RNA sequence: CUCGUCUGGAGGGGACGCGAGGAUCGCCCUCGCUGCCGCUUUGGCCAGUGCGUCGGCCCGGGCCCUGACAAGCUGCCCCAGGGGAAGCUCUUCGAGCCAGAGUUGGACCUCUGGCGAUUGCGUCUGCUCUCCUCUCUUGAUCUCACGAGGGGUUCGCUCGCCACCCCCCACCUCUGACGUGCCUUUCUCCCCUCCCGCGUGUGGAGGGAGCCAGCGCUUAGGCCGGAGCGAGCCUGGGGGCCGCGGGCCGUGAAGGCAUCGCGGGCACGACGUUCACCAUG
Numbered sequence: 001c002u003c004g005u006c007u008g009g010a011g012g013g014g015a016c017g018c019g020a021g022g023a024u025c026g027c028c029c030u031c032g033c034u035g036c037c038g039c040u041u042u043g044g045c046c047a048g049u050g051c052g053u054c055g056g057c058c059c060g061g062g063c064c065c066u067g068a069c070a071a072g073c074u075g076c077c078c079c080a081g082g083g084g085a086a087g088c089u090c091u092u093c094g095a096g097c098c099a100g101a102g103u104u105g106g107a108c109c110u111c112u113g114g115c116g117a118u119u120g121c122g123u124c125u126g127c128u129c130u131c132c133u134c135u136c137u138u139g140a141u142c143u144c145a146c147g148a149g150g151g152g153u154u155c156g157c158u159c160g161c162c163a164c165c166c167c168c169c170a171c172c173u174c175u176g177a178c179g180u181g182c183c184u185u186u187c188u189c190c191c192c193u194c195c196c197g198c199g200u201g202u203g204g205a206g207g208g209a210g211c212c213a214g215c216g217c218u219u220a221g222g223c224c225g226g227a228g229c230g231a232g233c234c235u236g237g238g239g240g241c242c243g244c245g246g247g248c249c250g251u252g253a254a255g256g257c258a259u260c261g262c263g264g265g266c267a268c269g270a271c272g273u274u275c276a277c278c279a280u281g
Stems, first nucleotide, its partner, number of pairs: 001014003017033006035063003084155003088152001130151005180213002183210004191204002224247001228244003
Description
Rfam assigns this 281-nucleotide RNA sequence from Ovis aries to the family "HIF-1 alpha IRES". Its family is annotated with ribosome binding in the Gene Ontology. From the family's description: This family represents the hypoxia-inducible factor 1-alpha internal ribosome entry site. HIF-1a is a subunit of the HIF-1 transcription factor, which induces transcription of several genes involved in the cellular response to hypoxia. The HIF-1a IRES allows translation to be maintained under hypoxic cell conditions that inhibit cap-dependent translation. Rfam classes the family as an internal ribosome entry site.